[Rfam]
RNA sequence: UCACUUACCUGGAUGGGGUCUAUGAGUGAUCAAGAAGGCUCAUGGCCUAGGUUGGUGACCUCCAUUGCACUUAGGAGGGGUGCCACUCUAAGAUCAGCCCAAGUGGUUGAGUCUACAUCGUAAUUUGUUGCUGAGGGGGCCUGCGUUCGCGCGGCCCCUA
Numbered sequence: 001u002c003a004c005u006u007a008c009c010u011g012g013a014u015g016g017g018g019u020c021u022a023u024g025a026g027u028g029a030u031c032a033a034g035a036a037g038g039c040u041c042a043u044g045g046c047c048u049a050g051g052u053u054g055g056u057g058a059c060c061u062c063c064a065u066u067g068c069a070c071u072u073a074g075g076a077g078g079g080g081u082g083c084c085a086c087u088c089u090a091a092g093a094u095c096a097g098c099c100c101a102a103g104u105g106g107u108u109g110a111g112u113c114u115a116c117a118u119c120g121u122a123a124u125u126u127g128u129u130g131c132u133g134a135g136g137g138g139g140c141c142u143g144c145g146u147u148c149g150c151g152c153g154g155c156c157c158c159u160a
Stems, first nucleotide, its partner, number of pairs: 012119004016048005023042005049089003055083003059079003062075002091114003094110003098106002135159005142153004
RNA: U1 spliceosomal RNA